Shown here is a 121-nucleotide RNA from Rhizobium sp. BK376, a member of the family "Rhizobiales sRNA Atu_C8". On this family, see Wilms et al., RNA Biol 2012: "Deep sequencing uncovers numerous small RNAs on all four replicons of the plant pathogen Agrobacterium tumefaciens". By type it is a small RNA. A search with the family's covariance model found it, with a score of 114 bits.
[Rfam]
RNA sequence: GAAAAUCGCAACUGUUCUUGUGGUGGUGAUCGCGCGCAUGGGCAGGAUGGUCUAACCGUCCGGCGAAAGCACCCAUGCGCGGUAAGCAGGCUCCUGACGGGGCCUUUUUUUAUGCCCUGAA
Numbered sequence: 001g002a003a004a005a006u007c008g009c010a011a012c013u014g015u016u017c018u019u020g021u022g023g024u025g026g027u028g029a030u031c032g033c034g035c036g037c038a039u040g041g042g043c044a045g046g047a048u049g050g051u052c053u054a055a056c057c058g059u060c061c062g063g064c065g066a067a068a069g070c071a072c073c074c075a076u077g078c079g080c081g082g083u084a085a086g087c088a089g090g091c092u093c094c095u096g097a098c099g100g101g102g103c104c105u106u107u108u109u110u111u112a113u114g115c116c117c118u119g120a121a
Stems, first nucleotide, its partner, number of pairs: 007028001009026001033081010045061006063070002086106001088105007